[Rfam]
RNA sequence: AUUUUAUAUUAGUAACUGCCAAAGACAGCAGGUGCCGUAAGGCAUAAGGAGAAAACGCCUGCCGAGGAAGAGUGAAAUUCUUGUAUUGAAUUUGUGAUCCUCUGUGUCUUUGUGCACAGAGGAUUUUUAUUUGCAGAG
Numbered sequence: 001a002u003u004u005u006a007u008a009u010u011a012g013u014a015a016c017u018g019c020c021a022a023a024g025a026c027a028g029c030a031g032g033u034g035c036c037g038u039a040a041g042g043c044a045u046a047a048g049g050a051g052a053a054a055a056c057g058c059c060u061g062c063c064g065a066g067g068a069a070g071a072g073u074g075a076a077a078u079u080c081u082u083g084u085a086u087u088g089a090a091u092u093u094g095u096g097a098u099c100c101u102c103u104g105u106g107u108c109u110u111u112g113u114g115c116a117c118a119g120a121g122g123a124u125u126u127u128u129a130u131u132u133g134c135a136g137a138g
Base pairs, nucleotide, nucleotide: 028062029061030060031059032058033057034043035042036041098123099122100121101120102119103118104117105116106115107114
RNA: Ribosomal protein L10 leader